[Rfam]
RNA sequence: CGGGGCAGAGCAGACGCCCCGUGAGACGGCCUCCCGUCCAAGCUCUGC
Numbered sequence: 001c002g003g004g005g006c007a008g009a010g011c012a013g014a015c016g017c018c019c020c021g022u023g024a025g026a027c028g029g030c031c032u033c034c035c036g037u038c039c040a041a042g043c044u045c046u047g048c
Stems, first nucleotide, its partner, number of pairs: 001021006010048005025038005

The family of this 48-nucleotide RNA sequence is "chrB-b RNA". The base pairs follow the family's consensus structure, which is taken from published work.